[Rfam]
RNA sequence: GGUCUAUGAUGAGAUUUACGUAUUGUAUUCCCUGAAUCUAAUGGUGAUGAUUAUCACAACUUUAGCUCUAGAAUUACUCUGAGGCCUG
Dot-bracket structure: ((((..............................................................................))))..
Description:
This 88-nucleotide RNA sequence from Sphenodon punctatus belongs to the Rfam family "Small nucleolar RNA SNORD45". The family's RNA type in Rfam is C/D-box small nucleolar RNA. The literature on the family includes a 2002 paper in Mol Cell Biol by Galardi et al., "Purified box C/D snoRNPs are able to reproduce site-specific 2'-O-methylation of target RNA in vitro".